A member of the RNA family "Small nucleolar RNA Z43" from Lathyrus oleraceus, 94 nucleotides long. On this family, see Chen et al., Nucleic Acids Res 2003: "The high diversity of snoRNAs in plants: identification and comparative study of 120 snoRNA genes from Oryza sativa". NCBI's taxonomy places the organism under Eukaryota, Pentapetalae, Papilionoideae, Hologalegina, Lathyrus. Its family is annotated with nucleolus and RNA processing in the Gene Ontology. A search with the family's covariance model found it, with a score of 96 bits.
RNA sequence: GGACAGUGACGAUUGUGAUAGGUCUCGUUCGUCGUAAUUGGUCAAAUCGACCUUGCCGACCAUCCUGUUAUAUCACCACCCAUAUUCUGAGUCC
Numbered sequence: 001g002g003a004c005a006g007u008g009a010c011g012a013u014u015g016u017g018a019u020a021g022g023u024c025u026c027g028u029u030c031g032u033c034g035u036a037a038u039u040g041g042u043c044a045a046a047u048c049g050a051c052c053u054u055g056c057c058g059a060c061c062a063u064c065c066u067g068u069u070a071u072a073u074c075a076c077c078a079c080c081c082a083u084a085u086u087c088u089g090a091g092u093c094c
Stems, first nucleotide, its partner, number of pairs: 001094004044054002